[Rfam]
RNA sequence: GGCCCAAAUCUGAAGUAGGGUAGAUUAGUAAGGUCAGCUGAUCCUACUAUUCUACUGUACUUCAGAACUGCUCUC
Numbered sequence: 001g002g003c004c005c006a007a008a009u010c011u012g013a014a015g016u017a018g019g020g021u022a023g024a025u026u027a028g029u030a031a032g033g034u035c036a037g038c039u040g041a042u043c044c045u046a047c048u049a050u051u052c053u054a055c056u057g058u059a060c061u062u063c064a065g066a067a068c069u070g071c072u073c074u075c
Base pairs, nucleotide, nucleotide: 001074002073005070006069009066011064012063013062014061015060016059017058019056020055021054022053023052026049027048028047029046030045032043033042034041035040